[Rfam]
RNA sequence: GUGCUAUGAUGACAUCCAUAUGGUUUCGCUGCUGUCUGAGUUUCAGAGAUGACACCUUCCUUUCUCUUGGCUGUCUGAGCAU
Number, nucleotide and partner (000 for none) at each position: 001g082002u081003g080004c079005u000006a000007u000008g000009a000010u000011g000012a000013c000014a000015u000016c000017c000018a000019u000020a000021u000022g000023g000024u000025u000026u000027c000028g000029c000030u000031g000032c000033u000034g000035u000036c000037u000038g000039a000040g000041u000042u000043u000044c000045a000046g000047a000048g000049a000050u000051g000052a000053c000054a000055c000056c000057u000058u000059c000060c000061u000062u000063u000064c000065u000066c000067u000068u000069g000070g000071c000072u000073g000074u000075c000076u000077g000078a000079g004080c003081a002082u001